[Rfam]
c-di-AMP riboswitch aptamer (ydaO/yuaA leader): a 169-nucleotide RNA from Streptomyces sp. WM6386.
RNA sequence: GCCCGGGGACCGCACAACUCACCCGUGAACGGCAGGAGCGGGGGACCCACAGGUACAACUGCCUGUUCCGGUCUCCGGAACGGCUAGGGGUUAAGUCGCACUUCGGUGCGGCCGGGCAUCUCCAGCCCGAACCCGACAGCUCACCUCGCAGGCGCCGGAGAGGAAUUCG
Numbered sequence: 001g002c003c004c005g006g007g008g009a010c011c012g013c014a015c016a017a018c019u020c021a022c023c024c025g026u027g028a029a030c031g032g033c034a035g036g037a038g039c040g041g042g043g044g045a046c047c048c049a050c051a052g053g054u055a056c057a058a059c060u061g062c063c064u065g066u067u068c069c070g071g072u073c074u075c076c077g078g079a080a081c082g083g084c085u086a087g088g089g090g091u092u093a094a095g096u097c098g099c100a101c102u103u104c105g106g107u108g109c110g111g112c113c114g115g116g117c118a119u120c121u122c123c124a125g126c127c128c129g130a131a132c133c134c135g136a137c138a139g140c141u142c143a144c145c146u147c148g149c150a151g152g153c154g155c156c157g158g159a160g161a162g163g164a165a166u167u168c169g
Stems, first nucleotide, its partner, number of pairs: 002036002038149006048087001088134003096111004114128004
It scores 60 bits against the family's covariance model. Its family is annotated with regulation of gene expression and cyclic-di-AMP binding in the Gene Ontology. Lineage of the source: Bacteria > Bacillati > Actinomycetota > Kitasatosporales > Streptomyces.